[Rfam]
RNA sequence: GCUGGAGUUUCGCGGGAAAUAGUUGAUGAACACGAAGCCCCGGGCCUGAUCGAUGCAGUGGAAGAGCGGGUUCCAGUCGAAGAGCAUCAGCAUGGUCGGCGGCAGGGCGUUGGCGACGAACAUCUUGCCCGAGGCGAUCAUGUUGGCCCGUUG
Dot-bracket structure: ..((..(((...(((.......)))...))).))....(.(((......)))..).........((((..(((.....))).....((((((((.....((((((((..(((....)))...))))).))).......))))))))..)))).
Numbered sequence: 001g002c003u004g005g006a007g008u009u010u011c012g013c014g015g016g017a018a019a020u021a022g023u024u025g026a027u028g029a030a031c032a033c034g035a036a037g038c039c040c041c042g043g044g045c046c047u048g049a050u051c052g053a054u055g056c057a058g059u060g061g062a063a064g065a066g067c068g069g070g071u072u073c074c075a076g077u078c079g080a081a082g083a084g085c086a087u088c089a090g091c092a093u094g095g096u097c098g099g100c101g102g103c104a105g106g107g108c109g110u111u112g113g114c115g116a117c118g119a120a121c122a123u124c125u126u127g128c129c130c131g132a133g134g135c136g137a138u139c140a141u142g143u144u145g146g147c148c149c150g151u152u153g
Stems, first nucleotide, its partner, number of pairs: 003034002007031003013025003039055001041052003065152004071081003087146008100131003103127005110119003